Rfam assigns this 77-nucleotide RNA sequence from Oscillospiraceae bacterium Marseille-Q3528 to the family "Fluoride riboswitch aptamer (crcB RNA motif)".
[Rfam]
RNA sequence: UCAGACAAAGGGAAUGAGAUUCUCCCUAAGUAAAAUUUACUUGAACCGCUUAUUAAGCUGAUGACUUCUGCGAUAAA
Numbered sequence: 001u002c003a004g005a006c007a008a009a010g011g012g013a014a015u016g017a018g019a020u021u022c023u024c025c026c027u028a029a030g031u032a033a034a035a036u037u038u039a040c041u042u043g044a045a046c047c048g049c050u051u052a053u054u055a056a057g058c059u060g061a062u063g064a065c066u067u068c069u070g071c072g073a074u075a076a077a
Base pairs, nucleotide, nucleotide: 010026011025012024013023016068017067018066020064021063048058049057050056
Background:
The organism belongs to Oscillospiraceae, within Bacteria. Its family is annotated with positive regulation of gene expression and response to fluoride in the Gene Ontology. It scores 49 bits against the family's covariance model.